Description:
c-di-GMP-I riboswitch aptamer: an 87-nucleotide RNA from Paenibacillus wynnii. Gene Ontology term of the family: cyclic-di-GMP binding. The family's consensus secondary structure is taken from published work. The organism belongs to Paenibacillus, within Bacteria.
RNA sequence: AUAUAUCAAGGGCAAACCUAUUGAAAGGUAGGGACGCAAAGCCAUGGGUCUAAGGUUCCUACGAACUACGAAAGCCAGGUUGCAGGU
Numbered sequence: 001a002u003a004u005a006u007c008a009a010g011g012g013c014a015a016a017c018c019u020a021u022u023g024a025a026a027g028g029u030a031g032g033g034a035c036g037c038a039a040a041g042c043c044a045u046g047g048g049u050c051u052a053a054g055g056u057u058c059c060u061a062c063g064a065a066c067u068a069c070g071a072a073a074g075c076c077a078g079g080u081u082g083c084a085g086g087u
Base pairs, nucleotide, nucleotide: 012037013036017032018031019030020029021028022027040081041080042079043078045077046076047075049071050070055066056065057064058063